[Rfam]
RNA sequence: CGUUUCCUGCGGUGUUCGAGUUAAGGUGAAAUGCCCUUGGACCUAAUUACCUACCCGGGAAGACAGAUCAUUUUGUUGGUGUGCACGCUCUACAUAGAGAAGCCUAAUGCAAAUGUCCGACUCCCACUUGAACCUAUCGGUUCAAGGUAGAAACCUGAAUACGGCACUGGCGGGAAGCGC
Numbered sequence: 001c002g003u004u005u006c007c008u009g010c011g012g013u014g015u016u017c018g019a020g021u022u023a024a025g026g027u028g029a030a031a032u033g034c035c036c037u038u039g040g041a042c043c044u045a046a047u048u049a050c051c052u053a054c055c056c057g058g059g060a061a062g063a064c065a066g067a068u069c070a071u072u073u074u075g076u077u078g079g080u081g082u083g084c085a086c087g088c089u090c091u092a093c094a095u096a097g098a099g100a101a102g103c104c105u106a107a108u109g110c111a112a113a114u115g116u117c118c119g120a121c122u123c124c125c126a127c128u129u130g131a132a133c134c135u136a137u138c139g140g141u142u143c144a145a146g147g148u149a150g151a152a153a154c155c156u157g158a159a160u161a162c163g164g165c166a167c168u169g170g171c172g173g174g175a176a177g178c179g180c
Stems, first nucleotide, its partner, number of pairs: 002178009012167004017163002033148002036146001038144006058125002062121001064119001066117002069115001072113005083103002088099004
Rfam assigns this 180-nucleotide RNA sequence from Cycloclasticus sp. P1 to the family "6S / SsrS RNA". About the family: E. coli 6S RNA was the first non coding RNA to be sequenced, but its function was unknown until recently. NCBI's taxonomy places the organism under Bacteria, Gammaproteobacteria, Thiotrichales, Piscirickettsiaceae, Cycloclasticus. The family's consensus secondary structure is taken from published work.